[Rfam]
Nucleotides: 106
Stems, first nucleotide, its partner, number of pairs: 008099006020032004034086003037082002041080001043078001047073006
Number, partner (000 for none) and nucleotide at each position: 001000g002000g003000a004000g005000g006000g007000a008099g009098c010097u011096c012095u013094g014000g015000a016000g017000a018000a019000u020032c021031c022030c023029a024000u025000u026000c027000a028000u029023u030022g031021g032020g033000u034086g035085c036084c037082g038081a039000c040000g041080g042000u043078g044000c045000a046000a047073a048072g049071c050070a051069g052068g053000c054000g055000g056000g057000c058000u059000g060000u061000a062000a063000u064000c065000c066000c067000u068052u069051c070050u071049g072048c073047u074000g075000a076000a077000u078043c079000u080041c081038u082037c083000a084036g085035g086034c087000a088000g089000a090000c091000g092000g093000a094013c095012a096011g097010a098009g099008c100000c101000g102000g103000g104000u105000a106000u

A member of the RNA family "Glycine riboswitch aptamer" from Thermoclostridium stercorarium, 106 nucleotides long. This family represents the bacterial glycine riboswitch. It scores 57 bits against the family's covariance model. Taxonomically the source falls in Thermoclostridium stercorarium subsp. stercorarium (Bacteria, Bacillota, Oscillospiraceae, Thermoclostridium stercorarium).